[Rfam]
RNA sequence: GCUACUCGAGGUAGACAAGGUUCUCUACACGCAACGUAAGUUGUUAUCAGGGAUGAAGGGUUGACCGUCCUUCCGGAUAGC
Numbered sequence: 001g002c003u004a005c006u007c008g009a010g011g012u013a014g015a016c017a018a019g020g021u022u023c024u025c026u027a028c029a030c031g032c033a034a035c036g037u038a039a040g041u042u043g044u045u046a047u048c049a050g051g052g053a054u055g056a057a058g059g060g061u062u063g064a065c066c067g068u069c070c071u072u073c074c075g076g077a078u079a080g081c
Base pairs, nucleotide, nucleotide: 001081002080003079004078006076007075008074011028012027013026014025015024019066020065021064022063030050031044032043033042034041055073056072057071058070059069
The family of this 81-nucleotide RNA is "skipping-rope RNA".